[Rfam]
RNA: Guanidine-II riboswitch aptamer (mini-ykkC)
RNA sequence: CGGUCGGGACGACCCGACUCUGACAGGGAUUGCCACCGGGACGACCCGG
Numbered sequence: 001c002g003g004u005c006g007g008g009a010c011g012a013c014c015c016g017a018c019u020c021u022g023a024c025a026g027g028g029a030u031u032g033c034c035a036c037c038g039g040g041a042c043g044a045c046c047c048g049g
Base pairs, nucleotide, nucleotide: 002019003018004017005016006015007014008013036049037048038047039046040045